RNA sequence: AAUAGAAAAAGGCAAACCUUUCGAAAGAGAGUGACGCAAAGCUACGGGCCUAACUCUUAAGACAUGGUCGCCGGGCUGCCAAA
Numbered sequence: 001a002a003u004a005g006a007a008a009a010a011g012g013c014a015a016a017c018c019u020u021u022c023g024a025a026a027g028a029g030a031g032u033g034a035c036g037c038a039a040a041g042c043u044a045c046g047g048g049c050c051u052a053a054c055u056c057u058u059a060a061g062a063c064a065u066g067g068u069c070g071c072c073g074g075g076c077u078g079c080c081a082a083a
Stems, first nucleotide, its partner, number of pairs: 012037002018031005040077004045073003048068003055062002
Source information:
The record is an 83-nucleotide RNA sequence from Halalkalibacter wakoensis, which matches "c-di-GMP-I riboswitch aptamer" in Rfam. GEMM was predicted in a large-scale screen for bacterial structured RNA regulatory elements. It scores 78 bits against the family's covariance model. The base pairs follow the family's consensus structure, which is taken from published work.